[Rfam]
RNA sequence: GUCUGUGUCAUUCUUGUGGUUUGCAACUAGUUUGUGUCUCCAGUUGCAUAGUCACAAAAAUGAUCAUGGAC
Numbered sequence: 001g002u003c004u005g006u007g008u009c010a011u012u013c014u015u016g017u018g019g020u021u022u023g024c025a026a027c028u029a030g031u032u033u034g035u036g037u038c039u040c041c042a043g044u045u046g047c048a049u050a051g052u053c054a055c056a057a058a059a060a061u062g063a064u065c066a067u068g069g070a071c
Stems, first nucleotide, its partner, number of pairs: 002070006008063005014057007022048007
mir-153 microRNA precursor family: a 71-nucleotide sequence from Gymnodraco acuticeps. The literature on the family includes a 2009 paper in Mol Reprod Dev by Tesfaye et al., "Identification and expression profiling of microRNAs during bovine oocyte maturation using heterologous approach". Pairs were carried over by alignment from the consensus structure, which was predicted with RNAalifold. NCBI's taxonomy places the organism under Eukaryota, Acanthomorphata, Percomorphaceae, Eupercaria, Gymnodraco. Rfam links the family to the GO terms miRNA-mediated post-transcriptional gene silencing and RISC complex.